Rfam assigns this 178-nucleotide RNA sequence from Halalkalibacter nanhaiisediminis to the family "Lysine riboswitch aptamer". Riboswitches are metabolite binding domains within certain messenger RNAs that serve as precision sensors for their corresponding targets. Allosteric rearrangement of mRNA structure is mediated by ligand binding, and this results in modulation of gene expression. This family includes riboswitches that sense lysine in a number of genes involved in lysine metabolism, including lysC. A search with the family's covariance model found it, with a score of 131 bits. The family's consensus secondary structure is taken from published work.
RNA sequence: UGAUGGGGUAGAGGCGCAACUGUCAUCAGUAUAUUCUUGGAGGAUGACAACAAAGAUGAGUGUAGAAAGGGUCAGUUGCCGAAGUGAGAGUUGGACGUCAUACAACUCUUGCUGGGGCUGUGUUGAAGAAGGACAGCACUGUCACAACGAUCUUUCGUUGUGGAGGACUACUAUGGUG
Numbered sequence: 001u002g003a004u005g006g007g008g009u010a011g012a013g014g015c016g017c018a019a020c021u022g023u024c025a026u027c028a029g030u031a032u033a034u035u036c037u038u039g040g041a042g043g044a045u046g047a048c049a050a051c052a053a054a055g056a057u058g059a060g061u062g063u064a065g066a067a068a069g070g071g072u073c074a075g076u077u078g079c080c081g082a083a084g085u086g087a088g089a090g091u092u093g094g095a096c097g098u099c100a101u102a103c104a105a106c107u108c109u110u111g112c113u114g115g116g117g118c119u120g121u122g123u124u125g126a127a128g129a130a131g132g133a134c135a136g137c138a139c140u141g142u143c144a145c146a147a148c149g150a151u152c153u154u155u156c157g158u159u160g161u162g163g164a165g166g167a168c169u170a171c172u173a174u175g176g177u178g
Base pairs, nucleotide, nucleotide: 007172008171009170010169011168016079017078018077019076020075021074022073024071032064033063034062036060037059038058039057083113084112085111086110087109088108089107090106091105092104093103114140115139117137118136119135120134121133123131124130142163143162144161145160146159147158148157
The source organism's lineage runs through Bacteria, Bacillati, Bacillota, Bacillaceae and Halalkalibacter.